[Rfam]
RNA sequence: UCAAUGUUGGAGAGCUAUUUGCAAGGUACCUAAUUGUUUGAUUAUUGAUUCUCAAUUGGUCCCCUCCAAGUAGCUCUAUUGCAUUGU
Numbered sequence: 001u002c003a004a005u006g007u008u009g010g011a012g013a014g015c016u017a018u019u020u021g022c023a024a025g026g027u028a029c030c031u032a033a034u035u036g037u038u039u040g041a042u043u044a045u046u047g048a049u050u051c052u053c054a055a056u057u058g059g060u061c062c063c064c065u066c067c068a069a070g071u072a073g074c075u076c077u078a079u080u081g082c083a084u085u086g087u
Stems, first nucleotide, its partner, number of pairs: 011077011025063002028060003032057005
RNA: mir-245 microRNA precursor family
Organism: Caenorhabditis elegans